[Rfam]
RNA sequence: AGCCGUGCGGUGAUCACAGAGCGAGCUAUUCUUUCGCCUUUUACUAAAAGAAUACCGUGUGCACGCCGCAAACAGCAGCAUACGCUUAUUUUUGGAGGGUUCUCUUCAACUGAACGA
Numbered sequence: 001a002g003c004c005g006u007g008c009g010g011u012g013a014u015c016a017c018a019g020a021g022c023g024a025g026c027u028a029u030u031c032u033u034u035c036g037c038c039u040u041u042u043a044c045u046a047a048a049a050g051a052a053u054a055c056c057g058u059g060u061g062c063a064c065g066c067c068g069c070a071a072a073c074a075g076c077a078g079c080a081u082a083c084g085c086u087u088a089u090u091u092u093u094g095g096a097g098g099g100u101u102c103u104c105u106u107c108a109a110c111u112g113a114a115c116g117a
Base pairs, nucleotide, nucleotide: 003078005076006075008068009067010066011065012064015061016060017059018058027054028053029052030051031050032049033048034047099115100114101113102112
The record is a 117-nucleotide sequence from Salix koriyanagi, which matches "U5 spliceosomal RNA" in Rfam.
Rfam's curators write: U5 RNA is a component of both types of known spliceosome. The precise function of this molecule is unknown, though it is known that the 5' loop is required for splice site selection and p220 binding, and that both the 3' stem-loop and the Sm site are important for Sm protein binding and cap methylation.
The family's consensus secondary structure is taken from published work.
Rfam 15.1 lists 28,527 matches to the family in 2,489 species.